[Rfam]
RNA sequence: GCGAUGAGAAUUGCUACGUAUAGCAUUGGCUGUGUGAAGAAAUUACGGCCAGUGCUCGUGUGACAAUUCUCAUUACU
Numbered sequence: 001g002c003g004a005u006g007a008g009a010a011u012u013g014c015u016a017c018g019u020a021u022a023g024c025a026u027u028g029g030c031u032g033u034g035u036g037a038a039g040a041a042a043u044u045a046c047g048g049c050c051a052g053u054g055c056u057c058g059u060g061u062g063a064c065a066a067u068u069c070u071c072a073u074u075a076c077u
Stems, first nucleotide, its partner, number of pairs: 001076001003074006010067004015062005022056010